[Rfam]
RNA: dfrA-dnaX RNA
RNA sequence: AGUAACUUUGUUAAAUUAUACAUAUUUCAUCAUAUUUACCUUAAUUUAGUUAUCAAAAAGAAAAUAUGAUAUAAU
Numbered sequence: 001a002g003u004a005a006c007u008u009u010g011u012u013a014a015a016u017u018a019u020a021c022a023u024a025u026u027u028c029a030u031c032a033u034a035u036u037u038a039c040c041u042u043a044a045u046u047u048a049g050u051u052a053u054c055a056a057a058a059a060g061a062a063a064a065u066a067u068g069a070u071a072u073a074a075u
Stems, first nucleotide, its partner, number of pairs: 029070008